Rfam assigns this 106-nucleotide RNA sequence from Sporosarcina sp. BI001-red to the family "SAM riboswitch aptamer (S box leader)". The SAM riboswitch is found upstream of a number of genes which code for proteins involved in methionine or cysteine biosynthesis in Gram-positive bacteria. The SAM riboswitch acts at the level of transcription termination control. The predicted structure consists of a complex stem-loop region followed by a single stem loop terminator region. The base pairs follow the family's consensus structure, which is taken from published work. It scores 81 bits against the family's covariance model.

RNA sequence: CUCUUAUACAGAGAGGUGGAGGGGAGAACCCUGUGAAGCCCGGCAACCGUCAAUUUACUUGAAAUGGUGCCAAGUCACACAAAGCGCAUGCUUUGAAAGAUGAGAG
Numbered sequence: 001c002u003c004u005u006a007u008a009c010a011g012a013g014a015g016g017u018g019g020a021g022g023g024g025a026g027a028a029c030c031c032u033g034u035g036a037a038g039c040c041c042g043g044c045a046a047c048c049g050u051c052a053a054u055u056u057a058c059u060u061g062a063a064a065u066g067g068u069g070c071c072a073a074g075u076c077a078c079a080c081a082a083a084g085c086g087c088a089u090g091c092u093u094u095g096a097a098a099g100a101u102g103a104g105a106g
Stems, first nucleotide, its partner, number of pairs: 001106007013041001015040003021031003026078001042071004047067002050062003075098001080095006